[Rfam]
The family of this 242-nucleotide sequence from Halobacteroides halobius is "Group II catalytic intron D1-D4-6". From the family's description: Group II introns are found in rRNA, tRNA and mRNA of organelles in fungi, plants and protists, and also in mRNA in bacteria. On this family, see Bonen and Vogel, Trends Genet 2001: "The ins and outs of group II introns". A search with the family's covariance model found it, with a score of 71 bits. Taxonomically the source falls in Halobacteroides halobius (Bacteria, Bacillota, Halanaerobiales, Halobacteroides).

RNA sequence: CAAGUCCCGUCAAGGUAAAAGUAAAAAACUUGUAGUAGAAUAGCAGUGUGGUGAGAGAUCUAAACAUUGAAGUCUAUUGACAAAGAUUAUCGAGCAAGUAUUCAGACUAUAACACCAGUGAACGCAUACUAGCUUCGAAAGGGGUAAAAUUUGGUGGUCGAACCUUUAACGUCUGGGUGAAGACAGGAUAUAUAAAUGAAAAUGACUGAAACAUUUAUAUACACCAACGGAGUAUUAGCGGU
Numbered sequence: 001c002a003a004g005u006c007c008c009g010u011c012a013a014g015g016u017a018a019a020a021g022u023a024a025a026a027a028a029c030u031u032g033u034a035g036u037a038g039a040a041u042a043g044c045a046g047u048g049u050g051g052u053g054a055g056a057g058a059u060c061u062a063a064a065c066a067u068u069g070a071a072g073u074c075u076a077u078u079g080a081c082a083a084a085g086a087u088u089a090u091c092g093a094g095c096a097a098g099u100a101u102u103c104a105g106a107c108u109a110u111a112a113c114a115c116c117a118g119u120g121a122a123c124g125c126a127u128a129c130u131a132g133c134u135u136c137g138a139a140a141g142g143g144g145u146a147a148a149a150u151u152u153g154g155u156g157g158u159c160g161a162a163c164c165u166u167u168a169a170c171g172u173c174u175g176g177g178u179g180a181a182g183a184c185a186g187g188a189u190a191u192a193u194a195a196a197u198g199a200a201a202a203u204g205a206c207u208g209a210a211a212c213a214u215u216u217a218u219a220u221a222c223a224c225c226a227a228c229g230g231a232g233u234a235u236u237a238g239c240g241g242u
Stems, first nucleotide, its partner, number of pairs: 012031003016027001022208001033084001035081001039078003043073001044069006053060002128236001130234001132233006151227006157184003162178004189221009